Rfam assigns this 134-nucleotide sequence from Psychromonas sp. B3M02 to the family "Ribosomal S15 leader". Rfam links the family to the GO term regulation of translation, ncRNA-mediated. The base pairs follow the family's consensus structure, which is taken from published work. For this family Rfam cites "Pseudoknot and translational control in the expression of the S15 ribosomal protein" (Benard et al., Biochimie, 1996). The E. coli Ribosomal S15 gene 5' UTR can form two alternative structures. One that is a series of three hairpins, The other includes a pseudoknot. This structure causes translational regulation of the S15 protein. Its Rfam clan is "Ribosomal Protein S15 Leader clan".
RNA sequence: CUUUAUCGCUGAAUUAGUGAUCGGCGAUAAUAAUUAAAAUAGGUUAUCCACAUAACCGCAAAAUAUCGGAGUACGUUAUGUCACUAAGUGCAGAACAGAAAGCUGAGAUUGUAGCAAAAUUUGGUCGCGCAGAA
Numbered sequence: 001c002u003u004u005a006u007c008g009c010u011g012a013a014u015u016a017g018u019g020a021u022c023g024g025c026g027a028u029a030a031u032a033a034u035u036a037a038a039a040u041a042g043g044u045u046a047u048c049c050a051c052a053u054a055a056c057c058g059c060a061a062a063a064u065a066u067c068g069g070a071g072u073a074c075g076u077u078a079u080g081u082c083a084c085u086a087a088g089u090g091c092a093g094a095a096c097a098g099a100a101a102g103c104u105g106a107g108a109u110u111g112u113a114g115c116a117a118a119a120u121u122u123g124g125u126c127g128c129g130c131a132g133a134a
Stems, first nucleotide, its partner, number of pairs: 007026006045088001047086001068085002071082001